Background:
ZMP/ZTP riboswitch aptamer (pfl RNA motif): an 86-nucleotide RNA from Kitasatospora viridis. Gene Ontology terms of the family: regulation of purine nucleotide biosynthetic process and one-carbon metabolic process.
[Rfam]
RNA sequence: CGGAGCGGUCGCGACUGGCGAGGGUGGACCACCACCGGGAAGCGGCCGGUCACCGGAUGCGAGCGUCGACCGCCUGGGCGCCUGUG
Numbered sequence: 001c002g003g004a005g006c007g008g009u010c011g012c013g014a015c016u017g018g019c020g021a022g023g024g025u026g027g028a029c030c031a032c033c034a035c036c037g038g039g040a041a042g043c044g045g046c047c048g049g050u051c052a053c054c055g056g057a058u059g060c061g062a063g064c065g066u067c068g069a070c071c072g073c074c075u076g077g078g079c080g081c082c083u084g085u086g
Stems, first nucleotide, its partner, number of pairs: 003051002006048007015039002017074004024035004063081005